Rhizobiales sRNA Atu_C8: a 123-nucleotide RNA sequence from Aureimonas glaciei. Rfam classes the family as a small RNA.
RNA sequence: CAUCAUGAGCAAGAUUCUUAUUGUAGUAGGACGGCGUACACGCGAGACGGUCUGAGGACCGGCCGGCGAAAGCCACGUGUACGCUGCUCAAGGCCCUUCAGGGGCCUUUUUUAUUGCCCUGAU
Numbered sequence: 001c002a003u004c005a006u007g008a009g010c011a012a013g014a015u016u017c018u019u020a021u022u023g024u025a026g027u028a029g030g031a032c033g034g035c036g037u038a039c040a041c042g043c044g045a046g047a048c049g050g051u052c053u054g055a056g057g058a059c060c061g062g063c064c065g066g067c068g069a070a071a072g073c074c075a076c077g078u079g080u081a082c083g084c085u086g087c088u089c090a091a092g093g094c095c096c097u098u099c100a101g102g103g104g105c106c107u108u109u110u111u112u113a114u115u116g117c118c119c120u121g122a123u
Base pairs, nucleotide, nucleotide: 029119030118032116033085034084035083036082037081038080039079040078041077042076046063048061049060050059066073067072090108091107092106093105094104095103096102097101
The match comes from Rfam's covariance-model search (79 bits).
The organism belongs to Aureimonas, within Bacteria.
Pairs were carried over by alignment from the consensus structure, which was predicted with CMfinder.